About this RNA: A member of the RNA family "pemK RNA", 81 nucleotides long. It is annotated as a cis-regulatory element. The sequence is in the family's curated seed alignment.
RNA sequence: UCAAAGAUACUUUCGUCCAGCCACAGCUGCACGCAAUGGGGGCGACUCGGAGCAAUCCUCGGAGGGGUUAGAUUCCCAUGA
Numbered sequence: 001u002c003a004a005a006g007a008u009a010c011u012u013u014c015g016u017c018c019a020g021c022c023a024c025a026g027c028u029g030c031a032c033g034c035a036a037u038g039g040g041g042g043c044g045a046c047u048c049g050g051a052g053c054a055a056u057c058c059u060c061g062g063a064g065g066g067g068u069u070a071g072a073u074u075c076c077c078a079u080g081a
Stems, first nucleotide, its partner, number of pairs: 012078001013045006046064003050060003065077003